Annotation: Rfam assigns this 84-nucleotide sequence from Chenopodium quinoa to the family "Small nucleolar RNA SNORD34". Its family is annotated with nucleolus and RNA processing in the Gene Ontology. The base pairs follow the family's consensus structure, which was predicted with PFOLD. It is annotated as a C/D-box small nucleolar RNA. The organism belongs to Chenopodium, within Eukaryota. snoRNA U34 is found in intron 5 of the ribosomal protein L13a gene in humans. The match comes from Rfam's covariance-model search (45 bits). Rfam 15.1 lists 1,319 matches to the family in 583 species.
RNA sequence: AAGGGCCUGUGAAGAUCUUUCAAAAUUUUUGCCUACAUUGUCUGAUGAUACAAUGAUAAAACUAUUUGUGUGUCUGAGGCCCUA
Numbered sequence: 001a002a003g004g005g006c007c008u009g010u011g012a013a014g015a016u017c018u019u020u021c022a023a024a025a026u027u028u029u030u031g032c033c034u035a036c037a038u039u040g041u042c043u044g045a046u047g048a049u050a051c052a053a054u055g056a057u058a059a060a061a062c063u064a065u066u067u068g069u070g071u072g073u074c075u076g077a078g079g080c081c082c083u084a
Base pairs, nucleotide, nucleotide: 002083004081005080006079007078